[Rfam]
RNA sequence: UGAUACCAAGGGUAGAAAAGUCAUAUGUUUCAUGCUGGCAUGAAUAAGCAUGACUUUGAAACCCGCACAAACAUGAGAAUGGAGCCUGACAGGGCGGAAUUCGAAUGUUUGCAGGAUUGUGGGAGCACAAAGUGCGUAACAAUCCGUGGUAUCA
Number, nucleotide and partner (000 for none) at each position: 001u154002g153003a152004u151005a150006c149007c148008a000009a000010g000011g063012g062013u061014a000015g000016a000017a057018a056019a055020g054021u053022c052023a051024u050025a000026u048027g000028u046029u000030u043031c042032a041033u040034g039035c000036u000037g000038g000039c034040a033041u032042g031043a030044a000045u000046a028047a000048g026049c000050a024051u023052g022053a021054c020055u019056u018057u017058g000059a000060a000061a013062c012063c011064c000065g000066c000067a000068c111069a110070a109071a108072c107073a106074u105075g000076a000077g102078a101079a100080u099081g000082g000083a000084g095085c094086c093087u092088g000089a000090c000091a000092g087093g086094g085095c084096g000097g000098a000099a080100u079101u078102c077103g000104a000105a074106u073107g072108u071109u070110u069111g068112c000113a000114g145115g144116a143117u142118u141119g140120u139121g000122g000123g000124a000125g135126c134127a133128c132129a000130a000131a000132g128133u127134g126135c125136g000137u000138a000139a120140c119141a118142a117143u116144c115145c114146g000147u000148g007149g006150u005151a004152u003153c002154a001
The record is a 154-nucleotide RNA from Blautia liquoris, which matches "Clostridiales-1 RNA" in Rfam. It is annotated as a small RNA. Lineage of the source: Bacteria > Bacillota > Clostridia > Lachnospirales > Blautia. It scores 124 bits against the family's covariance model.